[Rfam]
RNA sequence: UAUAAAAAUAAAGCGCCAGGACUACAUAUCUAAUAGAGUUAUUUUAAUGAUACAUGAAUAACUGAAAGUGUGAUUGUAGUUGACGAGGAGAAGGUUGAUCGAAUUUUCGGCGGAUGCCUUCUAGUGUUCAUCCAUACUAAAAGCUAUUUAACAAAACUGUUAGGAGACUAAUAGUACAAAAAAAUAGCAGGAUGUGGG
Numbered sequence: 001u002a003u004a005a006a007a008a009u010a011a012a013g014c015g016c017c018a019g020g021a022c023u024a025c026a027u028a029u030c031u032a033a034u035a036g037a038g039u040u041a042u043u044u045u046a047a048u049g050a051u052a053c054a055u056g057a058a059u060a061a062c063u064g065a066a067a068g069u070g071u072g073a074u075u076g077u078a079g080u081u082g083a084c085g086a087g088g089a090g091a092a093g094g095u096u097g098a099u100c101g102a103a104u105u106u107u108c109g110g111c112g113g114a115u116g117c118c119u120u121c122u123a124g125u126g127u128u129c130a131u132c133c134a135u136a137c138u139a140a141a142a143g144c145u146a147u148u149u150a151a152c153a154a155a156a157c158u159g160u161u162a163g164g165a166g167a168c169u170a171a172u173a174g175u176a177c178a179a180a181a182a183a184a185u186a187g188c189a190g191g192a193u194g195u196g197g198g
Stems, first nucleotide, its partner, number of pairs: 020081007029072001090121005099110004122139006143188007157174007